[Rfam]
RNA sequence: GGGAGUGGAUAGGUCCCGGUGGGCCUCCCGGUCUUCAAAAUCGGUGUCGGGUCGCGUUGCGAGCCGCGGUGGGUUCGACUCCCAUCCAUUCCC
Dot-bracket structure: (((((((((.((((((....)))))).(((((.......)))))...(((.............)))...((((.......)))))))))))))
Numbered sequence: 001g002g003g004a005g006u007g008g009a010u011a012g013g014u015c016c017c018g019g020u021g022g023g024c025c026u027c028c029c030g031g032u033c034u035u036c037a038a039a040a041u042c043g044g045u046g047u048c049g050g051g052u053c054g055c056g057u058u059g060c061g062a063g064c065c066g067c068g069g070u071g072g073g074u075u076c077g078a079c080u081c082c083c084a085u086c087c088a089u090u091c092c093c
Stems, first nucleotide, its partner, number of pairs: 001093009011026006028044005048066003070084004